RNA sequence: UAUGCUAUGAUGAGAUAAGGCACCAUUUUAGGUGUUUGUGGGGCAGUGGAUUAAUCUCCGUGAGCCUAAUCUAAUUAACGACUUCUCCUUCCACUGAGCAAA
Numbered sequence: 001u002a003u004g005c006u007a008u009g010a011u012g013a014g015a016u017a018a019g020g021c022a023c024c025a026u027u028u029u030a031g032g033u034g035u036u037u038g039u040g041g042g043g044c045a046g047u048g049g050a051u052u053a054a055u056c057u058c059c060g061u062g063a064g065c066c067u068a069a070u071c072u073a074a075u076u077a078a079c080g081a082c083u084u085c086u087c088c089u090u091c092c093a094c095u096g097a098g099c100a101a102a
Stems, first nucleotide, its partner, number of pairs: 001102001003100003